[Rfam]
RNA sequence: CACACGGUUCCUCCCACUCGGAUCGUCCGGCACGUUCCUGCCGGUGGAAAGGAAGUC
Numbered sequence: 001c002a003c004a005c006g007g008u009u010c011c012u013c014c015c016a017c018u019c020g021g022a023u024c025g026u027c028c029g030g031c032a033c034g035u036u037c038c039u040g041c042c043g044g045u046g047g048a049a050a051g052g053a054a055g056u057c
Base pairs, nucleotide, nucleotide: 010051012049014047015046016045027044028043029042030041031040032039
msiK RNA: a 57-nucleotide sequence from Actinoplanes nipponensis. The base pairs follow the family's consensus structure, which is taken from published work. Taxonomically the source falls in Actinoplanes (Bacteria, Actinomycetota, Actinomycetes, Micromonosporales).